Rfam assigns this 220-nucleotide RNA to the family "Actinobacteria sRNA Ms_IGR-5".
The base pairs follow the family's consensus structure.
[Rfam]
RNA sequence: ACACGGGAGAGGAGGUGGUCCAGCAGAUGAGCUAUUGGACACGUGAGGUGGCCGUCAGCUAGCACCACGUUCUGCGUCGGCGGGGAGAACCCGUCCGGCGAGACGGUCGUGGAAGCCGGUGUGGUGCCGGCGAAUUCCAGACGGUCACCCGUGAUCCCCGGGUCCGGGCCACUCAGGUCCGGCGUGCGCACACCGGUGCGGCCCGGGGAUCACGCAUGUC
Numbered sequence: 001a002c003a004c005g006g007g008a009g010a011g012g013a014g015g016u017g018g019u020c021c022a023g024c025a026g027a028u029g030a031g032c033u034a035u036u037g038g039a040c041a042c043g044u045g046a047g048g049u050g051g052c053c054g055u056c057a058g059c060u061a062g063c064a065c066c067a068c069g070u071u072c073u074g075c076g077u078c079g080g081c082g083g084g085g086a087g088a089a090c091c092c093g094u095c096c097g098g099c100g101a102g103a104c105g106g107u108c109g110u111g112g113a114a115g116c117c118g119g120u121g122u123g124g125u126g127c128c129g130g131c132g133a134a135u136u137c138c139a140g141a142c143g144g145u146c147a148c149c150c151g152u153g154a155u156c157c158c159c160g161g162g163u164c165c166g167g168g169c170c171a172c173u174c175a176g177g178u179c180c181g182g183c184g185u186g187c188g189c190a191c192a193c194c195g196g197u198g199c200g201g202c203c204c205g206g207g208g209a210u211c212a213c214g215c216a217u218g219u220c
Base pairs, nucleotide, nucleotide: 014056015055016054017053018052019051058131059130060129062127063126065124066123067122068121072119073118150214151213152212153211154210155209156208157207158206159205160204161203162202164182165181166180167179168178169177
Dot-bracket structure: .............((((((...............................)))))).(((.((.((((...((............................................)).)))).)).)))..................(((((((((((((.((((((.......))))))...................)))))))))))))......
It is annotated as a small RNA.